[Rfam]
RNA sequence: GACGCGCCAGCGCCGAAGGCAGGAGCGGGGGACCCAAGGUAAGUGCCGGGAGGCCAGCGGAAUCGGCCGAGCGGCUAGGGGUGAAGCAGGGUGCGGACCCCCGCACCCAGCCGGGCAACUCACGCCCGAACCCGACAGCUCACCUCGUAGGCGUCGGUGAGGAAACGA
Numbered sequence: 001g002a003c004g005c006g007c008c009a010g011c012g013c014c015g016a017a018g019g020c021a022g023g024a025g026c027g028g029g030g031g032a033c034c035c036a037a038g039g040u041a042a043g044u045g046c047c048g049g050g051a052g053g054c055c056a057g058c059g060g061a062a063u064c065g066g067c068c069g070a071g072c073g074g075c076u077a078g079g080g081g082u083g084a085a086g087c088a089g090g091g092u093g094c095g096g097a098c099c100c101c102c103g104c105a106c107c108c109a110g111c112c113g114g115g116c117a118a119c120u121c122a123c124g125c126c127c128g129a130a131c132c133c134g135a136c137a138g139c140u141c142a143c144c145u146c147g148u149a150g151g152c153g154u155c156g157g158u159g160a161g162g163a164a165a166c167g168a
Stems, first nucleotide, its partner, number of pairs: 005153004013023002025148006035078001079133003087110001089108008113127004
About this RNA: The record is a 168-nucleotide sequence from Streptomyces sp. Rer75, which matches "c-di-AMP riboswitch aptamer (ydaO/yuaA leader)" in Rfam. About the family: This family represents a conserved RNA structure found upstream of the ydaO and yuaA genes in Bacillus subtilis and related genes in other bacteria. Taxonomically the source falls in Streptomyces (Bacteria, Actinomycetota, Actinomycetes, Kitasatosporales). Gene Ontology terms of the family: cyclic-di-AMP binding and regulation of gene expression.